[Rfam]
RNA sequence: GGUUGGUCUGAUGGUAGUGGGUUAUCAGAACUUACUAACAUUAGUGUCACUAAAGUUGGCGUUUAAUCCCCCUGUGCUAAAUUUGACUGCCAAAA
Numbered sequence: 001g002g003u004u005g006g007u008c009u010g011a012u013g014g015u016a017g018u019g020g021g022u023u024a025u026c027a028g029a030a031c032u033u034a035c036u037a038a039c040a041u042u043a044g045u046g047u048c049a050c051u052a053a054a055g056u057u058g059g060c061g062u063u064u065a066a067u068c069c070c071c072c073u074g075u076g077c078u079a080a081a082u083u084u085g086a087c088u089g090c091c092a093a094a095a
Base pairs, nucleotide, nucleotide: 001091002090003089005088006087007086008085010084011083015079016075019072020071021070033061035059037057038056
The family of this 95-nucleotide sequence from Rhinopithecus roxellana is "Y RNA". A reference for the family is Teunissen et al. (2000), "Conserved features of Y RNAs: a comparison of experimentally derived secondary structures", Nucleic Acids Res. Pairs were carried over by alignment from the consensus structure, which is taken from published work.